A member of the RNA family "Bacterial large subunit ribosomal RNA" from Fannyhessea vaginae, 361 nucleotides of a longer RNA. Pairs were carried over by alignment from the consensus structure, which is taken from published work. It scores 2891 bits against the family's covariance model.
RNA sequence: CGGGAGAACUAUGGUUAAGGAACUCGGCAAAAUAACCCCGUAACUUCGGGAUAAGGGGUGCCAUCUUAGGUGAUAAGAUUUACUCUUUGAGCUUUUGGUGGUCACAGUAAAGAGGUCCAAACGACUGUUUAUCAAAAACACAGGACUCUGCUGAAGUCGUAAGACGACGUAUAGGGUCUGACGCCUGCCCGGUGCCGGAAGGUCACGAGGAGUUGUUAGCAUUUGCGAAGCAGCGAAUCUAAGCCCCGGUAAACGGCGGCCGUAACUAUAACGGUCCUAAGGUAGCGAAAUUCCUUGUCGGGUAAGUUCCGACCUGCACGAAAGGCGUAACGAUUUGGACACUGUCUCAACCAUAGACCCG
Numbered sequence: 001c002g003g004g005a006g007a008a009c010u011a012u013g014g015u016u017a018a019g020g021a022a023c024u025c026g027g028c029a030a031a032a033u034a035a036c037c038c039c040g041u042a043a044c045u046u047c048g049g050g051a052u053a054a055g056g057g058g059u060g061c062c063a064u065c066u067u068a069g070g071u072g073a074u075a076a077g078a079u080u081u082a083c084u085c086u087u088u089g090a091g092c093u094u095u096u097g098g099u100g101g102u103c104a105c106a107g108u109a110a111a112g113a114g115g116u117c118c119a120a121a122c123g124a125c126u127g128u129u130u131a132u133c134a135a136a137a138a139c140a141c142a143g144g145a146c147u148c149u150g151c152u153g154a155a156g157u158c159g160u161a162a163g164a165c166g167a168c169g170u171a172u173a174g175g176g177u178c179u180g181a182c183g184c185c186u187g188c189c190c191g192g193u194g195c196c197g198g199a200a201g202g203u204c205a206c207g208a209g210g211a212g213u214u215g216u217u218a219g220c221a222u223u224u225g226c227g228a229a230g231c232a233g234c235g236a237a238u239c240u241a242a243g244c245c246c247c248g249g250u251a252a253a254c255g256g257c258g259g260c261c262g263u264a265a266c267u268a269u270a271a272c273g274g275u276c277c278u279a280a281g282g283u284a285g286c287g288a289a290a291u292u293c294c295u296u297g298u299c300g301g302g303u304a305a306g307u308u309c310c311g312a313c314c315u316g317c318a319c320g321a322a323a324g325g326c327g328u329a330a331c332g333a334u335u336u337g338g339a340c341a342c343u344g345u346c347u348c349a350a351c352c353a354u355a356g357a358c359c360c361g
Base pairs, nucleotide, nucleotide: 001361002360003359004358009356010355011354012353013352014351015350016349018347019346020345035059036058037057038056039055044049060102061101062100063099064098065097103107115340116339117338118337119336120335121334122332123331126140127139128138143179144178145177146176147175148174149173150172151169156165157164158163182327183326184325185324187257188256189255192254193253194250195249196248197247198246201245202244203243207239208238212234213233214232215231216230219226220225258276259275260274261273262272263271277281287314297313298312299311300310301309302308